RNA sequence: UUCCGGAGUCGGGAUUUUGGGGGCGAGAUGUGCUGAUUUGUUUUAUCCAACUGGCCCGCAAAGUCCCGCUUCUGGUG
Number, nucleotide and partner (000 for none) at each position: 001u000002u000003c075004c074005g073006g072007a071008g070009u000010c068011g067012g066013g065014a000015u063016u062017u061018u060019g059020g000021g057022g056023g055024c054025g000026a052027g051028a000029u049030g048031u000032g000033c000034u000035g000036a000037u000038u000039u000040g000041u000042u000043u000044u000045a000046u000047c000048c030049a029050a000051c027052u026053g000054g024055c023056c022057c021058g000059c019060a018061a017062a016063g015064u000065c013066c012067c011068g010069c000070u008071u007072c006073u005074g004075g003076u000077g000
RNA: mir-193 microRNA precursor family
Organism: Microcaecilia unicolor